[Rfam]
RNA sequence: AGCUGGAUAAGGCAAUCCGUUUUGUGGAUUAUGCCAAAAUAAGGACUUAUCCAUAGUG
Numbered sequence: 001a002g003c004u005g006g007a008u009a010a011g012g013c014a015a016u017c018c019g020u021u022u023u024g025u026g027g028a029u030u031a032u033g034c035c036a037a038a039a040u041a042a043g044g045a046c047u048u049a050u051c052c053a054u055a056g057u058g
Base pairs, nucleotide, nucleotide: 004053005052006051007050008049009048010047012046019040020039021038022037023036024035026034
Dot-bracket structure: ...(((((((.(......((((((.(.......))))))).....)))))))).....
Background:
The record is a 58-nucleotide sequence from Sarcophilus harrisii, which matches "mir-7386 microRNA precursor family" in Rfam. Lineage of the source: Eukaryota > Bilateria > Gnathostomata > Dasyuridae > Sarcophilus.